FMN riboswitch aptamer (RFN element): a 192-nucleotide RNA sequence from Paenibacillus lutimineralis. Lineage of the source: Bacteria > Bacillati > Bacillota > Bacilli > Paenibacillus.
[Rfam]
RNA sequence: UUUUUCCUUCGGGGUCGGGUGUAAUUCCCAACCGACGGUGAUGGCAUGCGCUAUUUAAUUAGGCUUCUUACGUCUAAUAACAUGCAUGUACGAGUCCGUGACCUGUAUAUCACUUGAUCUAUUCAUGCGAUAUAUGGCUGAGCCGGUGAGAUUCCGGGACCGACAGUAUAGUCUGGAUGGGAGAAGGAAGAC
Number, nucleotide and partner (000 for none) at each position: 001u000002u000003u190004u189005u188006c187007c186008u185009u184010c183011g000012g000013g000014g000015u000016c000017g029018g028019g027020u000021g000022u000023a000024a000025u000026u000027c019028c018029c017030a000031a172032c171033c162034g161035a099036c098037g097038g096039u000040g000041a000042u000043g000044g000045c000046a000047u000048g000049c000050g000051c000052u000053a000054u000055u000056u000057a000058a000059u000060u000061a000062g000063g000064c000065u000066u000067c000068u000069u000070a000071c000072g000073u000074c000075u000076a000077a000078u000079a000080a000081c000082a000083u000084g000085c000086a000087u000088g000089u000090a000091c000092g000093a000094g000095u000096c038097c037098g036099u035100g000101a000102c000103c137104u136105g135106u134107a133108u132109a131110u130111c129112a000113c000114u000115u000116g000117a000118u000119c000120u000121a000122u000123u000124c000125a000126u000127g000128c000129g111130a110131u109132a108133u107134a106135u105136g104137g103138c000139u000140g000141a000142g000143c157144c156145g155146g154147u000148g000149a000150g000151a000152u000153u000154c146155c145156g144157g143158g000159a000160c000161c034162g033163a000164c175165a174166g173167u000168a000169u000170a000171g032172u031173c166174u165175g164176g000177a000178u000179g000180g000181g000182a000183g010184a009185a008186g007187g006188a005189a004190g003191a000192c000